[Rfam]
RNA sequence: AAGCCAGUAGAAUGGUAGCUGCAGAAUUAACAUUGUUCUGCAGAUAUUGAGGAAAAAGCUGGCAAAAGCAAAGCCACUGUACGAGCCUUACUGUCUUAAACACGUUAAGGUUCCUGGAAAUGGCUACAUCG
Numbered sequence: 001a002a003g004c005c006a007g008u009a010g011a012a013u014g015g016u017a018g019c020u021g022c023a024g025a026a027u028u029a030a031c032a033u034u035g036u037u038c039u040g041c042a043g044a045u046a047u048u049g050a051g052g053a054a055a056a057a058g059c060u061g062g063c064a065a066a067a068g069c070a071a072a073g074c075c076a077c078u079g080u081a082c083g084a085g086c087c088u089u090a091c092u093g094u095c096u097u098a099a100a101c102a103c104g105u106u107a108a109g110g111u112u113c114c115u116g117g118a119a120a121u122g123g124c125u126a127c128a129u130c131g
Stems, first nucleotide, its partner, number of pairs: 003063005019043004073124004085111006093103002
RNA: Small nucleolar RNA SNORA33